RNA sequence: ACACGGGAAAGGAGGUGAUCCGAUCAGAUGAAGAACGAUUGGAUGCGUGAGGUGGCUGCUCGCUAGCAGCCCUCCAACCACGGAUGGGGAGCUGGCAAUUCACCAGCAGCCACCCGACCCGCAGGCGUACCGGACUCAUCCACCGGGUCGGCCACCUGGCCCGCCUGCGGGUCGCCCCGU
Numbered sequence: 001a002c003a004c005g006g007g008a009a010a011g012g013a014g015g016u017g018a019u020c021c022g023a024u025c026a027g028a029u030g031a032a033g034a035a036c037g038a039u040u041g042g043a044u045g046c047g048u049g050a051g052g053u054g055g056c057u058g059c060u061c062g063c064u065a066g067c068a069g070c071c072c073u074c075c076a077a078c079c080a081c082g083g084a085u086g087g088g089g090a091g092c093u094g095g096c097a098a099u100u101c102a103c104c105a106g107c108a109g110c111c112a113c114c115c116g117a118c119c120c121g122c123a124g125g126c127g128u129a130c131c132g133g134a135c136u137c138a139u140c141c142a143c144c145g146g147g148u149c150g151g152c153c154a155c156c157u158g159g160c161c162c163g164c165c166u167g168c169g170g171g172u173c174g175c176c177c178c179g180u
Stems, first nucleotide, its partner, number of pairs: 014060004019055001062096006070089003074083002115174013130146004
Rfam assigns this 180-nucleotide RNA from Nocardioides luteus to the family "Actinobacteria sRNA Ms_IGR-5". NCBI's taxonomy places the organism under Bacteria, Bacillati, Actinomycetota, Propionibacteriales, Nocardioides. Rfam classes the family as a small RNA. A search with the family's covariance model found it, with a score of 100 bits.